The record is an 82-nucleotide RNA sequence from Hibiscus syriacus, which matches "Small nucleolar RNA R66" in Rfam. Its family is annotated with RNA processing and nucleolus in the Gene Ontology. By type it is a C/D-box small nucleolar RNA. A search with the family's covariance model found it, with a score of 65 bits. snoR66 is a C/D box small nucleolar RNA, which acts as a methylation guide for 18S ribosomal RNA in plants. snoR66 has been alternatively named snoZ269 in rice.
[Rfam]
RNA sequence: UCCAAUGAUGGUAUGAAAUCUUUGAGACCUGAUCUUUUUGUUUUUACAUUUGAUGACAACUAUAAGCAAAUUCACUGAGGAU
Numbered sequence: 001u002c003c004a005a006u007g008a009u010g011g012u013a014u015g016a017a018a019u020c021u022u023u024g025a026g027a028c029c030u031g032a033u034c035u036u037u038u039u040g041u042u043u044u045u046a047c048a049u050u051u052g053a054u055g056a057c058a059a060c061u062a063u064a065a066g067c068a069a070a071u072u073c074a075c076u077g078a079g080g081a082u
Stems, first nucleotide, its partner, number of pairs: 001081003032051001033048001